[Rfam]
Description:
Eukaryotic small subunit ribosomal RNA: a 532-nucleotide part of an RNA from Strongylocentrotus purpuratus. Gene Ontology terms of the family: ribosome and structural constituent of ribosome. Rfam 15.1 lists 75,755 matches to the family in 2,556 species.
RNA sequence: CAGUUAAAAAGCUCGUAGUUGGAUCUUGGGCCCAGGCCUGCGGUCCGCCGUGAGGCGUGUACUGCAGUCCUGGCCUUCCUCUCGGUUUUCGCCCGGUGCCCUUAAUUGAGUGCCAGGAGAGGCCGGAACGUUUACUUUGAAAAAAUUGGAGUGUUCAAAGCAGGCCUCGCGCCUGAACAGCAGAGCAUGGAAUAAUGGAAUAGGACCUCGGUUCUAUUGCGUUGGUUUUCGGAACUCGAGGUAAUGAUUAAGAGGGACUGACGGGGGCAUUCGUAUUGCGGUGUGAGAGGUGAAAUUCUUGGAUCGCCGCAAGACGACCGACUGCGAAAGCAUUUGCCAAGAAUGUUUUCAUUAAUCAAGAACGAAAGUUAGAGGUUCGAAGGCGAUCAGAUACCGCCCUAGUUCUAACCAUAAACGAUGCCGACUGACGAUCCGCCGGCGUUACUCCCAUGACGCGGCGGGCAGUCUAAGGGAAACCAAAGUCUUUGGGUUCCGGGGGAAGUAUGGUUGCAAAGCUGAAACUUAAAGGAAU
Numbered sequence: 001c002a003g004u005u006a007a008a009a010a011g012c013u014c015g016u017a018g019u020u021g022g023a024u025c026u027u028g029g030g031c032c033c034a035g036g037c038c039u040g041c042g043g044u045c046c047g048c049c050g051u052g053a054g055g056c057g058u059g060u061a062c063u064g065c066a067g068u069c070c071u072g073g074c075c076u077u078c079c080u081c082u083c084g085g086u087u088u089u090c091g092c093c094c095g096g097u098g099c100c101c102u103u104a105a106u107u108g109a110g111u112g113c114c115a116g117g118a119g120a121g122g123c124c125g126g127a128a129c130g131u132u133u134a135c136u137u138u139g140a141a142a143a144a145a146u147u148g149g150a151g152u153g154u155u156c157a158a159a160g161c162a163g164g165c166c167u168c169g170c171g172c173c174u175g176a177a178c179a180g181c182a183g184a185g186c187a188u189g190g191a192a193u194a195a196u197g198g199a200a201u202a203g204g205a206c207c208u209c210g211g212u213u214c215u216a217u218u219g220c221g222u223u224g225g226u227u228u229u230c231g232g233a234a235c236u237c238g239a240g241g242u243a244a245u246g247a248u249u250a251a252g253a254g255g256g257a258c259u260g261a262c263g264g265g266g267g268c269a270u271u272c273g274u275a276u277u278g279c280g281g282u283g284u285g286a287g288a289g290g291u292g293a294a295a296u297u298c299u300u301g302g303a304u305c306g307c308c309g310c311a312a313g314a315c316g317a318c319c320g321a322c323u324g325c326g327a328a329a330g331c332a333u334u335u336g337c338c339a340a341g342a343a344u345g346u347u348u349u350c351a352u353u354a355a356u357c358a359a360g361a362a363c364g365a366a367a368g369u370u371a372g373a374g375g376u377u378c379g380a381a382g383g384c385g386a387u388c389a390g391a392u393a394c395c396g397c398c399c400u401a402g403u404u405c406u407a408a409c410c411a412u413a414a415a416c417g418a419u420g421c422c423g424a425c426u427g428a429c430g431a432u433c434c435g436c437c438g439g440c441g442u443u444a445c446u447c448c449c450a451u452g453a454c455g456c457g458g459c460g461g462g463c464a465g466u467c468u469a470a471g472g473g474a475a476a477c478c479a480a481a482g483u484c485u486u487u488g489g490g491u492u493c494c495g496g497g498g499g500a501a502g503u504a505u506g507g508u509u510g511c512a513a514a515g516c517u518g519a520a521a522c523u524u525a526a527a528g529g530a531a532u
Stems, first nucleotide, its partner, number of pairs: 001495001003493001009492001011363001013361002018356003254350004258345001262341001266338004272316002276312008287298003324331002368409006378402001382398004420491003423484003427467003432462007441454003471478002497524003506517004
Dot-bracket structure: (.(.....(.(.((...(((.........................................................................................................................................................................................................................................(((((...(...((((..((..((((((((...(((......)))......))))))))..)).......((....))...))))..)...).))))...)))...)).)....((((((....(...((((.........))))...).))))))..........((((((.(((..(((((((..(((........))).)))))))..)))...((....))...)))....))))).).(((......((((....))))....)))........